[Rfam]
RNA sequence: AGUAGUUAUGAGUGUGUUCCCGAUAGGCUUCACAUACUUUGUGAAGGUGCCUUGUAACCAAAAAUAUUAGGGGGAAUGAAGAUG
Numbered sequence: 001a002g003u004a005g006u007u008a009u010g011a012g013u014g015u016g017u018u019c020c021c022g023a024u025a026g027g028c029u030u031c032a033c034a035u036a037c038u039u040u041g042u043g044a045a046g047g048u049g050c051c052u053u054g055u056a057a058c059c060a061a062a063a064a065u066a067u068u069a070g071g072g073g074g075a076a077u078g079a080a081g082a083u084g
Stems, first nucleotide, its partner, number of pairs: 017076005025052003029045005058071002
A member of the RNA family "SAM-III riboswitch aptamer (SMK box)" from Fructilactobacillus lindneri, 84 nucleotides long. The literature on the family includes a 2008 paper in Mol Cell by Wang et al., "Riboswitches that sense S-adenosylhomocysteine and activate genes involved in coenzyme recycling". A search with the family's covariance model found it, with a score of 65 bits. Pairs were carried over by alignment from the consensus structure, which is taken from published work.